A member of the RNA family "T-box leader" from Faecalibacterium prausnitzii, 264 nucleotides long. Uncharged tRNA acts as the effector for transcription antitermination of genes in the T-box leader family. T-boxes are found upstream of many aminoacyl-tRNA synthetase genes and some amino acid biosynthetic genes usually in Gram-positive bacteria. The anticodon of a specific tRNA base pairs to a specifier sequence within the T-box motif, and the NCCA acceptor tail of the tRNA base pairs to a conserved bulge in the T-box antiterminator hairpin. The literature on the family includes a 1994 paper in J Bacteriol by Grundy et al., "Interaction between the acceptor end of tRNA and the T box stimulates antitermination in the Bacillus subtilis tyrS gene: a new role for the discriminator base". The match comes from Rfam's covariance-model search (103 bits).
[Rfam]
RNA sequence: GCAAAUGCGUUGACGGGGAAAAAACGAUUUUCUUCUGCGUGCAGAGAGCCGCCGGAUGGUGCAAGGCGGUGCAGAGGGUCUCGGUUACUGGCCCCUGAGCGGCAGGACUGAAGCAGACAGUAGGCCCUGACGGAAGCCCACCGUUAUAAGGGCAGCGAUUCGCCUCAAAAAGCCGAUCGUGCAGAGCGGCUGUGCUUAUGGCACAGCAAAGAGAGUGGUACCACGGGUGCCCUGUAACAGAAAUUACAGGCUCUCGUCUCUCAG
Numbered sequence: 001g002c003a004a005a006u007g008c009g010u011u012g013a014c015g016g017g018g019a020a021a022a023a024a025c026g027a028u029u030u031u032c033u034u035c036u037g038c039g040u041g042c043a044g045a046g047a048g049c050c051g052c053c054g055g056a057u058g059g060u061g062c063a064a065g066g067c068g069g070u071g072c073a074g075a076g077g078g079u080c081u082c083g084g085u086u087a088c089u090g091g092c093c094c095c096u097g098a099g100c101g102g103c104a105g106g107a108c109u110g111a112a113g114c115a116g117a118c119a120g121u122a123g124g125c126c127c128u129g130a131c132g133g134a135a136g137c138c139c140a141c142c143g144u145u146a147u148a149a150g151g152g153c154a155g156c157g158a159u160u161c162g163c164c165u166c167a168a169a170a171a172g173c174c175g176a177u178c179g180u181g182c183a184g185a186g187c188g189g190c191u192g193u194g195c196u197u198a199u200g201g202c203a204c205a206g207c208a209a210a211g212a213g214a215g216u217g218g219u220a221c222c223a224c225g226g227g228u229g230c231c232c233u234g235u236a237a238c239a240g241a242a243a244u245u246a247c248a249g250g251c252u253c254u255c256g257u258c259u260c261u262c263a264g
Base pairs, nucleotide, nucleotide: 007100008099015095016094017093018092023085025083026082027081036073037072038071048070049069050068051067052066053065103129104128105127106126108124109123131143132142133141189207190206191205192204193203194202195201212261213260214259215258223257224256225255226254227253